[Rfam]
RNA: Ribosomal protein L20 leader
Organism: Anaerobacillus alkaliphilus
RNA sequence: CAAUGCAAGAAGAAGCGCCCGCUUCUCACCUGGCUGACAAAGAAAUGUUUGCAGGUUACUUAGUUGAUUAAAAUCAAUACAGGUGUGGGCGCAUUGUGCGUCUACAUCUUUUUUAUUUG
Numbered sequence: 001c002a003a004u005g006c007a008a009g010a011a012g013a014a015g016c017g018c019c020c021g022c023u024u025c026u027c028a029c030c031u032g033g034c035u036g037a038c039a040a041a042g043a044a045a046u047g048u049u050u051g052c053a054g055g056u057u058a059c060u061u062a063g064u065u066g067a068u069u070a071a072a073a074u075c076a077a078u079a080c081a082g083g084u085g086u087g088g089g090c091g092c093a094u095u096g097u098g099c100g101u102c103u104a105c106a107u108c109u110u111u112u113u114u115a116u117u118u119g
Stems, first nucleotide, its partner, number of pairs: 011026006028056003034051001036049003084106010